Shown here is a 444-nucleotide part of an RNA from Verrucomicrobia bacterium LW23, a member of the family "Bacterial large subunit ribosomal RNA". A search with the family's covariance model found it, with a score of 2708 bits. The source organism's lineage runs through Bacteria, Pseudomonadati and Verrucomicrobiota. Its family is annotated with ribosome and structural constituent of ribosome in the Gene Ontology.
[Rfam]
RNA sequence: CUCUCCGAAAUAGCUUGAGGGCUAGCCUUGUGUACUGAUGGACGGAGGUAAAGCACUGAAUGGACUAUGGUCCCUAACGGGAUACUGAAUCCAAUCAAACUCUGAAUGCCGUCCAAUGCAACACAGGAGUCAGACAGUGGGGGAUAAGCUUCAUUGUCGAGAGGGAAACAACCCAGAUCGCCGGCUAAGGUGCCCAAAUACAGCUCAGUGGAAAGGAUGUCAGGUUUCUUUAACAGUGAGGAUGUUGGCUUAGAGGCAGCCAUCAUUUAAACAGUGCGUAAUAGCUGACUCAUCGAGAAACCCGGCGCCGAAAAUGAUUGGCGAUAAGCUGUAUACCGAAGCCGCGGAUACCAGAAGACCUAGGUCUUCUGGCAUGGUAGGAGAGCGUUCCUGUUACUGCGAAGCGGGAGGGAAACCACCCGUGGAGUGACCGGAAGUGAGGAU
Numbered sequence: 001c002u003c004u005c006c007g008a009a010a011u012a013g014c015u016u017g018a019g020g021g022c023u024a025g026c027c028u029u030g031u032g033u034a035c036u037g038a039u040g041g042a043c044g045g046a047g048g049u050a051a052a053g054c055a056c057u058g059a060a061u062g063g064a065c066u067a068u069g070g071u072c073c074c075u076a077a078c079g080g081g082a083u084a085c086u087g088a089a090u091c092c093a094a095u096c097a098a099a100c101u102c103u104g105a106a107u108g109c110c111g112u113c114c115a116a117u118g119c120a121a122c123a124c125a126g127g128a129g130u131c132a133g134a135c136a137g138u139g140g141g142g143g144a145u146a147a148g149c150u151u152c153a154u155u156g157u158c159g160a161g162a163g164g165g166a167a168a169c170a171a172c173c174c175a176g177a178u179c180g181c182c183g184g185c186u187a188a189g190g191u192g193c194c195c196a197a198a199u200a201c202a203g204c205u206c207a208g209u210g211g212a213a214a215g216g217a218u219g220u221c222a223g224g225u226u227u228c229u230u231u232a233a234c235a236g237u238g239a240g241g242a243u244g245u246u247g248g249c250u251u252a253g254a255g256g257c258a259g260c261c262a263u264c265a266u267u268u269a270a271a272c273a274g275u276g277c278g279u280a281a282u283a284g285c286u287g288a289c290u291c292a293u294c295g296a297g298a299a300a301c302c303c304g305g306c307g308c309c310g311a312a313a314a315u316g317a318u319u320g321g322c323g324a325u326a327a328g329c330u331g332u333a334u335a336c337c338g339a340a341g342c343c344g345c346g347g348a349u350a351c352c353a354g355a356a357g358a359c360c361u362a363g364g365u366c367u368u369c370u371g372g373c374a375u376g377g378u379a380g381g382a383g384a385g386c387g388u389u390c391c392u393g394u395u396a397c398u399g400c401g402a403a404g405c406g407g408g409a410g411g412g413a414a415a416c417c418a419c420c421c422g423u424g425g426a427g428u429g430a431c432c433g434g435a436a437g438u439g440a441g442g443a444u
Stems, first nucleotide, its partner, number of pairs: 001385006011024005026129001027127007036120001037117001039115007051103001052101002057097003061093004069085001070083005133158010163174003178347004183343003189337003198334007215309002219306003223302006236293005242266003247261003267271001272287001276285002348375002351372008386439001388436004393431005404423005410417002